[Rfam]
RNA sequence: GGCCGGGUAGCGCGCAGCUAUACAAGACCCUUCGGGGGAAAUCUGCGGGCGGUCCUGACACCGUGUUCAAGUACCCGGCCCGUCCUCU
Numbered sequence: 001g002g003c004c005g006g007g008u009a010g011c012g013c014g015c016a017g018c019u020a021u022a023c024a025a026g027a028c029c030c031u032u033c034g035g036g037g038g039a040a041a042u043c044u045g046c047g048g049g050c051g052g053u054c055c056u057g058a059c060a061c062c063g064u065g066u067u068c069a070a071g072u073a074c075c076c077g078g079c080c081c082g083u084c085c086u087c088u
Stems, first nucleotide, its partner, number of pairs: 001080009013047004019041001028037003049064005
The record is an 88-nucleotide sequence from Pseudomonas putida, which matches "sRNA-Xcc1" in Rfam. The family's RNA type in Rfam is small RNA. The literature on the family includes a 2011 paper in Nucleic Acids Res by Schmidtke et al., "Genome-wide transcriptome analysis of the plant pathogen Xanthomonas identifies sRNAs with putative virulence functions". Rfam 15.1 lists 421 matches to the family in 299 species. Pairs were carried over by alignment from the consensus structure, which was predicted with RNAalifold.